[Rfam]
RNA sequence: UUUGCAACGGCAAGUCCUACACGACUAGCUCCUGCAGACUCCCCCAGGAUGGGAACAUAGCAAGGGUAUGCGGUUGAGCGGUGCGAUGUAGGUCGCUUGCCAUUUU
Dot-bracket structure: ........(((((((.(((((((((.......................................................)).)).)))))...))))))).....

Bacteroidales small SRP: a 106-nucleotide RNA sequence from Flavobacterium sp. GT3R68. The family's RNA type in Rfam is non-coding RNA gene. Pairs were carried over by alignment from the consensus structure, which is taken from published work. Clan: SRP clan. Its family is annotated with signal recognition particle, plasma membrane targeting and SRP-dependent cotranslational protein targeting to membrane, signal sequence recognition in the Gene Ontology. A search with the family's covariance model found it, with a score of 90 bits. The organism belongs to Flavobacterium, within Bacteria.